The record is a 94-nucleotide sequence from Slackia piriformis, which matches "Bacterial small signal recognition particle RNA" in Rfam.
Its Rfam clan is "SRP clan".
From the family's description: The signal recognition particle (SRP) is a universally conserved ribonucleoprotein involved in the co-translational targeting of proteins to membranes.
The organism belongs to Slackia piriformis, within Bacteria.

RNA sequence: GGAUGGGCUUGGGCGGCGCCAAGUUUCGAACCUGGUCAGGUCCGGGAGGAAGCAGCCAUAAGGGACCGCUGACGAGCGCCCAUGCCUAUCCGUA
Dot-bracket structure: ....(.((.(((((..((.((.(((((.....((((....(((....)))....))))...)))))...)).)).)..)))).)..).).....